Rfam assigns this 96-nucleotide RNA sequence from Trema andersonii to the family "Small nucleolar RNA snoR26". By type it is a C/D-box small nucleolar RNA. Rfam links the family to the GO terms RNA processing and nucleolus. Pairs were carried over by alignment from the consensus structure, which was predicted with WAR. The source organism's lineage runs through Eukaryota, Streptophyta, Streptophytina, fabids and Trema.
[Rfam]
RNA sequence: AGAGCAUCGUUGAUGAGUCUCUUAAAAUUGUUAUCCUUGCACUUUGAUUGUCAGUGAAGAAUCUCAUGGGGAAGUUUUCUGUUCUCUGAGAUGCUC
Numbered sequence: 001a002g003a004g005c006a007u008c009g010u011u012g013a014u015g016a017g018u019c020u021c022u023u024a025a026a027a028u029u030g031u032u033a034u035c036c037u038u039g040c041a042c043u044u045u046g047a048u049u050g051u052c053a054g055u056g057a058a059g060a061a062u063c064u065c066a067u068g069g070g071g072a073a074g075u076u077u078u079c080u081g082u083u084c085u086c087u088g089a090g091a092u093g094c095u096c
Stems, first nucleotide, its partner, number of pairs: 002096007